The family of this 298-nucleotide sequence from Coptotermes formosanus is "Metazoan signal recognition particle RNA".
Pairs were carried over by alignment from the consensus structure, which is taken from published work.
Rfam links the family to the GO terms signal recognition particle, endoplasmic reticulum targeting and SRP-dependent cotranslational protein targeting to membrane, signal sequence recognition.
For this family Rfam cites "Towards the structure of the mammalian signal recognition particle" (Wild et al., Curr Opin Struct Biol, 2002).
Rfam describes the family as follows. The signal recognition particle (SRP) is a universally conserved ribonucleoprotein. It is involved in the co-translational targeting of proteins to membranes. The eukaryotic SRP consists of a 300-nucleotide 7S RNA and six proteins: SRPs 72, 68, 54, 19, 14, and 9. Archaeal SRP consists of a 7S RNA and homologues of the eukaryotic SRP19 and SRP54 proteins.
NCBI's taxonomy places the organism under Eukaryota, Hexapoda, Polyneoptera, Rhinotermitidae, Coptotermes.

[Rfam]
RNA sequence: GCUGGGAGUCGUGGCGUACUCCUGUAAUCCAGCUACUUGGAGGCCAGAUGUUGAGGAUGAUUUGCGGUCGGGAGUUCUGGUGCUCAGUAACUCACGUUGACUAGACGUCCGCGCUAAGCUCAGCAUCAAUAUGGGCGGCCUGGGGGAGCCCGGAGCGGCCAGGUUGGGUAAAGAGAGGCGAAACGGGCCAGGGGGGAAACCCAGCAGCCAGAAGUCUCCGUGCGGAGCAGUAGUGGGUUCGCGUCCGGGAGUGGGAGCUGAGCAGCAACCCGACUAAGAUAGUCAGACCAACAUCUCU
Numbered sequence: 001g002c003u004g005g006g007a008g009u010c011g012u013g014g015c016g017u018a019c020u021c022c023u024g025u026a027a028u029c030c031a032g033c034u035a036c037u038u039g040g041a042g043g044c045c046a047g048a049u050g051u052u053g054a055g056g057a058u059g060a061u062u063u064g065c066g067g068u069c070g071g072g073a074g075u076u077c078u079g080g081u082g083c084u085c086a087g088u089a090a091c092u093c094a095c096g097u098u099g100a101c102u103a104g105a106c107g108u109c110c111g112c113g114c115u116a117a118g119c120u121c122a123g124c125a126u127c128a129a130u131a132u133g134g135g136c137g138g139c140c141u142g143g144g145g146g147a148g149c150c151c152g153g154a155g156c157g158g159c160c161a162g163g164u165u166g167g168g169u170a171a172a173g174a175g176a177g178g179c180g181a182a183a184c185g186g187g188c189c190a191g192g193g194g195g196g197a198a199a200c201c202c203a204g205c206a207g208c209c210a211g212a213a214g215u216c217u218c219c220g221u222g223c224g225g226a227g228c229a230g231u232a233g234u235g236g237g238u239u240c241g242c243g244u245c246c247g248g249g250a251g252u253g254g255g256a257g258c259u260g261a262g263c264a265g266c267a268a269c270c271c272g273a274c275u276a277a278g279a280u281a282g283u284c285a286g287a288c289c290a291a292c293a294u295c296u297c298u
Stems, first nucleotide, its partner, number of pairs: 001044003004023006028041003046296008058285005066275007078267002081264008091255005097249001101248002104245005109237002112235005118228004123223004127166004132161003136157002140153005175218005184211001186209003193202003
Rfam classes the family as a non-coding RNA gene.